[Rfam]
RNA: LOOT RNA
RNA sequence: AGCCUAAACCGUAGCUAUUAGCUAUGGCAUGGCACCAAAACAGUUCAACCCAGAAAGCUCCUAGUCAGAGCUCAGGUUGAACUGUCAUAUCUCGAAAGGGAUAUGGGUGUCGCAAGACAUC
Numbered sequence: 001a002g003c004c005u006a007a008a009c010c011g012u013a014g015c016u017a018u019u020a021g022c023u024a025u026g027g028c029a030u031g032g033c034a035c036c037a038a039a040a041c042a043g044u045u046c047a048a049c050c051c052a053g054a055a056a057g058c059u060c061c062u063a064g065u066c067a068g069a070g071c072u073c074a075g076g077u078u079g080a081a082c083u084g085u086c087a088u089a090u091c092u093c094g095a096a097a098g099g100g101a102u103a104u105g106g107g108u109g110u111c112g113c114a115a116g117a118c119a120u121c
Base pairs, nucleotide, nucleotide: 002033003032004031009027010026011025012024013023014022015021041084042083043082044081045080046079047078048077049076050075056072057071058070059069060068086105087104088103089102090101091100092099093098106121107120108119109118110117111116